[Rfam]
RNA: MIR2617 microRNA precursor family
Organism: Medicago truncatula
RNA sequence: AUGUAGUGUGACAUGCCCGUUUGGGUUAUUACUCUGAUGUUGAAAUAUUUAUUAUUUAAUUGAUUAUUGGGAACGGGGUGUUACAAUUGG
Numbered sequence: 001a002u003g004u005a006g007u008g009u010g011a012c013a014u015g016c017c018c019g020u021u022u023g024g025g026u027u028a029u030u031a032c033u034c035u036g037a038u039g040u041u042g043a044a045a046u047a048u049u050u051a052u053u054a055u056u057u058a059a060u061u062g063a064u065u066a067u068u069g070g071g072a073a074c075g076g077g078g079u080g081u082u083a084c085a086a087u088u089g090g
Stems, first nucleotide, its partner, number of pairs: 002090001005087001007085008016077006